[Rfam]
RNA sequence: UAGGUUCUUCGUUAGGUGAGGCUCCUGUGUGGAGAUACGCUGCUGCCCAAAAAUGUCCAAAGACGCCAAUGGGUCAACAGGAAUCAUCGACUUAAGGUGAUUUUUAACGCAGCUGGACAUCGUCCUAUGCUGCACAGUGCUAAAGCUCUACGAUGGAAGAAUGGA
Numbered sequence: 001u002a003g004g005u006u007c008u009u010c011g012u013u014a015g016g017u018g019a020g021g022c023u024c025c026u027g028u029g030u031g032g033a034g035a036u037a038c039g040c041u042g043c044u045g046c047c048c049a050a051a052a053a054u055g056u057c058c059a060a061a062g063a064c065g066c067c068a069a070u071g072g073g074u075c076a077a078c079a080g081g082a083a084u085c086a087u088c089g090a091c092u093u094a095a096g097g098u099g100a101u102u103u104u105u106a107a108c109g110c111a112g113c114u115g116g117a118c119a120u121c122g123u124c125c126u127a128u129g130c131u132g133c134a135c136a137g138u139g140c141u142a143a144a145g146c147u148c149u150a151c152g153a154u155g156g157a158a159g160a161a162u163g164g165a
Stems, first nucleotide, its partner, number of pairs: 005161006011151002013095001015147003020141003025137008039113005045074005054065004080104004086098003115125003
A member of the RNA family "M-box riboswitch aptamer (ykoK leader)" from Bacillus sp. SJS, 165 nucleotides long. The source organism's lineage runs through Bacteria, Bacillota, Bacilli, Caryophanales and Bacillus. From the family's description: M-box riboswitch, also know as ykoK leader is described as a metaloregulatory RNA that sense divalent metals and function as a genetic control element of genes related to divalent metal transport in bacteria.